[Rfam]
RNA sequence: UGAGGAAGCCAGGCAAUCGCGUGCCGAAGAGGCGCGAGGAAAGUCCGAACUCCAUAGAGCAGGGUGCUGGCUAACGGCCAGUGGGGGUGACCCUAAGGAAAGUGCAACAGAAACAUACCGCCUGCCUGUGCAGGUAAGGGUGAAAUGGUGAGGUAAGAGCUCACCGGCAACCAGGUGACUGGUUGGCCGUGCAAACCCCACCCGGAGCAAGACCGAGCAAGGGGAUAGCCGGUUUACGGCUAGCGAGUUGCUCGCUCGUGAACCCCUGGGUUGGUCGCUUGAGGCGUCAGGUAACUGGCGUCCCAGAUAGAUGAUUGCCACCCGUGUCGUCGAGAGGCGGUGCGGGCACAGAAUUCGGCUUAUGGCUUCUCUCAACUC
Dot-bracket structure: (((((.((.(((((((((.((((((.....))))))....[[[.[[[[[((((...[[[[.((((((((((.....)))))(((((....)))).)((...(((((...........((((((((....))))))..)).......((((((.......)))))).((((((((....))))))).)..)))..)))))))))))))...((((......((((.(.................(((((.]]]])))))...).)))).....))))......((((((((....))))))))..........)))))))..................................]]]]]]]].).).)).)))))....

A member of the RNA family "Bacterial RNase P class A" from Thermosporothrix hazakensis, 378 nucleotides long. The family's RNA type in Rfam is ribozyme.